[Rfam]
RNA sequence: GAAUUGCGUGAAGGAUGGCAGUGGAAAUCCUUUUGCGGAGUUUACGGAGCAAAAGAUUGCAGCGUACAGCCUGACGGCGG
Numbered sequence: 001g002a003a004u005u006g007c008g009u010g011a012a013g014g015a016u017g018g019c020a021g022u023g024g025a026a027a028u029c030c031u032u033u034u035g036c037g038g039a040g041u042u043u044a045c046g047g048a049g050c051a052a053a054a055g056a057u058u059g060c061a062g063c064g065u066a067c068a069g070c071c072u073g074a075c076g077g078c079g080g
Base pairs, nucleotide, nucleotide: 012072013071014070016068017067021063022062026058027057028056029055032053033052034051035050036049

The record is an 80-nucleotide RNA from Flavobacterium noncentrifugens, which matches "Flavo-1 RNA" in Rfam. The base pairs follow the family's consensus structure, which is taken from published work.